[Rfam]
RNA sequence: GUGGGGUACGGCGACAUGUUCCCAGAAACCAUCUGGGGUAAGCUGGUGGGGUCCAUGUGCGCCAUAGCGGGAGUGCUGACCAUUUCCCUGCCUGUCCCCGUCAUCGUGUCCAAC
Dot-bracket structure: ((.((.(((((.(((..(..(...............((((........((...........))..........))))................)..)..))).))))).)).))